[Rfam]
RNA sequence: ACCUGGCAUCCAGGUGGUGUGUGCCUCUAGUCCCAGAUGCCAGGGAGGUUGGGCCUGAUGGAUCACUUGAGCCCAGGAGUUCUGGGCUACAGGGUUCUGUGCCGAGCAGGCAUCCAAGCUAAGGCAAACAUCAGUAUGGUGAUCCGUGGGGGAGCUGUAGGUCACCAGGUUGGCUUAAGGAGGGGUGAACUGGCCAAGGUCAGAGAUGGAGCAGGUCAAAGCUCCCAUGGUGGUCAGUAGGGGGAUCACACCUGUGAACAGGCCCUGCAGUGUAUCCUGGUCAUCCCAGAGACACAUGGGCUCCU
Dot-bracket structure: (((.(((((.(.......).))))).....(((..........)))))).(((((((.....((.((.(.(.(((((.....((.(((.(((((.(((((.(...(((((..(((...(((.(((.(.(((((((.((((((((.((((.....)))).)))))))).)))).((...)).(((((....(((((....(((....)))....)))))..))))).))).).)))..)))..))...)..)))))).)))))))))).))).)).))))).).)...)).))....)))))))..
Rfam assigns this 305-nucleotide sequence from Scytalopus superciliaris to the family "Metazoan signal recognition particle RNA". A search with the family's covariance model found it, with a score of 157 bits. The literature on the family includes a 2002 paper in Curr Opin Struct Biol by Wild et al., "Towards the structure of the mammalian signal recognition particle". Lineage of the source: Eukaryota > Aves > Australaves > Rhinocryptidae > Scytalopus. The base pairs follow the family's consensus structure, which is taken from published work. Rfam classes the family as a non-coding RNA gene.